[Rfam]
RNA sequence: GGUUGGCAGUUUAAUUACUGUUUCAAGAUUUGGCUUUAGGGUGGAGAGCU
Numbered sequence: 001g002g003u004u005g006g007c008a009g010u011u012u013a014a015u016u017a018c019u020g021u022u023u024c025a026a027g028a029u030u031u032g033g034c035u036u037u038a039g040g041g042u043g044g045a046g047a048g049c050u
Stems, first nucleotide, its partner, number of pairs: 003026003006021005032050006
This 50-nucleotide sequence from Anaerocolumna chitinilytica belongs to the Rfam family "Na+ riboswitch aptamer (DUF1646)".
Gene Ontology terms of the family: regulation of gene expression and sodium ion binding.
The source organism's lineage runs through Bacteria, Bacillati, Bacillota, Clostridia and Anaerocolumna.